[Rfam]
RNA sequence: ACUCUUUAGCGUAUGACGGAUUACGUCAGUCGGGUGUUUAGCCAGACUCAAAUUUAUUGAACGGU
Number, nucleotide and partner (000 for none) at each position: 001a000002c000003u064004c063005u061006u060007u059008a058009g057010c000011g000012u000013a000014u000015g000016a000017c000018g000019g000020a000021u000022u000023a000024c000025g000026u000027c000028a048029g047030u046031c045032g000033g043034g042035u041036g000037u000038u000039u000040a000041g035042c034043c033044a000045g031046a030047c029048u028049c000050a000051a000052a000053u000054u000055u000056a000057u009058u008059g007060a006061a005062c000063g004064g003065u000
RNA: Retron msr RNA
Organism: Paenalcaligenes hominis